Source information:
This 460-nucleotide sequence from Panaeolus cyanescens belongs to the Rfam family "Nuclear RNase P". A reference for the family is Frank and Pace (1998), "Ribonuclease P: unity and diversity in a tRNA processing ribozyme", Annu Rev Biochem. A search with the family's covariance model found it, with a score of 84 bits.

[Rfam]
RNA sequence: ACAGAUGAAAAGCCGCGAGGCUCGCAACGCACAGAACGAAGACUCGUUUCUUUCGUUCAUAUUUGCGAGCGGGCUAAGGUCUGAGUAUUCUAAUCAUUCUCGAAUGGUCCUAGCGGGACCCAGUCUUAACGGACUGCAGUGACGUAUCAGAAAUCCGGCCAGUGCACUCGUCUGGUGGUAUUUUCUCCUCUUCACGGAGGCGGGAAAUGGUGCUGGACACCCAAAGAUAUUCCCAUACCUGAAAGGGUGGCAGGAAAGGAGGGUAUAGUGCAGACCUGGCCUUGGAACUCGUCGCAAUGAUCGGGUGUCUUUCUCUGUGCAUAUGCGGAGCUCACCACUCCUUGCGUAUGCCAGGGAUUUGAUGGCAUCCUUCAGCUCACUUCGCGGCGCACAGUGUGGGAUGUGGUCCCCUGGACUCGCAUUUCCCAGUGUAACUCGAUUCAGACUACUCUUCGUCUGU
Numbered sequence: 001a002c003a004g005a006u007g008a009a010a011a012g013c014c015g016c017g018a019g020g021c022u023c024g025c026a027a028c029g030c031a032c033a034g035a036a037c038g039a040a041g042a043c044u045c046g047u048u049u050c051u052u053u054c055g056u057u058c059a060u061a062u063u064u065g066c067g068a069g070c071g072g073g074c075u076a077a078g079g080u081c082u083g084a085g086u087a088u089u090c091u092a093a094u095c096a097u098u099c100u101c102g103a104a105u106g107g108u109c110c111u112a113g114c115g116g117g118a119c120c121c122a123g124u125c126u127u128a129a130c131g132g133a134c135u136g137c138a139g140u141g142a143c144g145u146a147u148c149a150g151a152a153a154u155c156c157g158g159c160c161a162g163u164g165c166a167c168u169c170g171u172c173u174g175g176u177g178g179u180a181u182u183u184u185c186u187c188c189u190c191u192u193c194a195c196g197g198a199g200g201c202g203g204g205a206a207a208u209g210g211u212g213c214u215g216g217a218c219a220c221c222c223a224a225a226g227a228u229a230u231u232c233c234c235a236u237a238c239c240u241g242a243a244a245g246g247g248u249g250g251c252a253g254g255a256a257a258g259g260a261g262g263g264u265a266u267a268g269u270g271c272a273g274a275c276c277u278g279g280c281c282u283u284g285g286a287a288c289u290c291g292u293c294g295c296a297a298u299g300a301u302c303g304g305g306u307g308u309c310u311u312u313c314u315c316u317g318u319g320c321a322u323a324u325g326c327g328g329a330g331c332u333c334a335c336c337a338c339u340c341c342u343u344g345c346g347u348a349u350g351c352c353a354g355g356g357a358u359u360u361g362a363u364g365g366c367a368u369c370c371u372u373c374a375g376c377u378c379a380c381u382u383c384g385c386g387g388c389g390c391a392c393a394g395u396g397u398g399g400g401a402u403g404u405g406g407u408c409c410c411c412u413g414g415a416c417u418c419g420c421a422u423u424u425c426c427c428a429g430u431g432u433a434a435c436u437c438g439a440u441u442c443a444g445a446c447u448a449c450u451c452u453u454c455g456u457c458u459g460u
Stems, first nucleotide, its partner, number of pairs: 001460004007454003012388007020070005034058008081444005106120005121136006139295006157281006389432004394427001
Dot-bracket structure: ((((..(((..(((((((.(((((.........((((((((.........)))))))).......)))))..........[[[[[....................(((((.....)))))((((((....))))))..((((((............((((((.................................................................................................................))))))........))))))......................................................................................)))))))((((.(................................).)))).......]]]]].......)))..))))